[Rfam]
This 77-nucleotide RNA from Pseudomonas fluorescens belongs to the Rfam family "Pseudomonas sRNA P9". About the family: This small RNA (sRNA) was computationally identified in the genome of the opportunistic pathogen Pseudomonas aeruginosa and its expression verified by northern blot analysis. P9 appears to be conserved in several Pseudomonas species in addition to Bordetella spp. In both Pseudomonas and Bordetella spp P9 appears to be located upstream of a predicted threonine dehydratase gene. Pairs were carried over by alignment from the consensus structure, which was predicted with RNAalifold.
RNA sequence: AGCAUUAUUACCGCCAUUCCUCAUUUGGCGGGCUAGCUCACGACUGCAGCACCCAACCCGCCCUAGAGGCGGGUUUU
Numbered sequence: 001a002g003c004a005u006u007a008u009u010a011c012c013g014c015c016a017u018u019c020c021u022c023a024u025u026u027g028g029c030g031g032g033c034u035a036g037c038u039c040a041c042g043a044c045u046g047c048a049g050c051a052c053c054c055a056a057c058c059c060g061c062c063c064u065a066g067a068g069g070c071g072g073g074u075u076u077u
Base pairs, nucleotide, nucleotide: 011031012030013029014028015027016026055075056074057073058072059071060070061069062068